[Rfam]
RNA sequence: CUCCUUGCUCCGGGGUGCACCGAUCUGAAAGGGUCGGGCGCUGAGAUGGCUGACCAGCCAAACCCGUGAACUUGAUCCGGUUAGUACCGGCGAAAGAAGAGCGCAUGCCCCACGC
Numbered sequence: 001c002u003c004c005u006u007g008c009u010c011c012g013g014g015g016u017g018c019a020c021c022g023a024u025c026u027g028a029a030a031g032g033g034u035c036g037g038g039c040g041c042u043g044a045g046a047u048g049g050c051u052g053a054c055c056a057g058c059c060a061a062a063c064c065c066g067u068g069a070a071c072u073u074g075a076u077c078c079g080g081u082u083a084g085u086a087c088c089g090g091c092g093a094a095a096g097a098a099g100a101g102c103g104c105a106u107g108c109c110c111c112a113c114g115c
Base pairs, nucleotide, nucleotide: 006103007102008101009100010099011066012065013064014063016060017041018040020038021037048059049058050057051056071096072095073094077090078089079088080087
Dot-bracket structure: .....(((((((((.(((.((...............)).))......((((....)))))..))))....(((...((((......))))...)))..)))))............
A member of the RNA family "TPP riboswitch aptamer (THI element)" from Hydrogenophaga sp. RAC07, 115 nucleotides long.